[Rfam]
RNA sequence: AUCCAGUUAUUUCGUUUUAGAAUCCAAACGCUUUGCCCAACAUCUUGGCAACGGUAAAGCGUAGGAAUUCUAAAGCAAAAACACA
Dot-bracket structure: .........(((.((((((((.(.(..(((((((.((...............)).)))))))..).).)))))))))))......
RNA: mir-927 microRNA precursor family
Organism: Chrysodeixis includens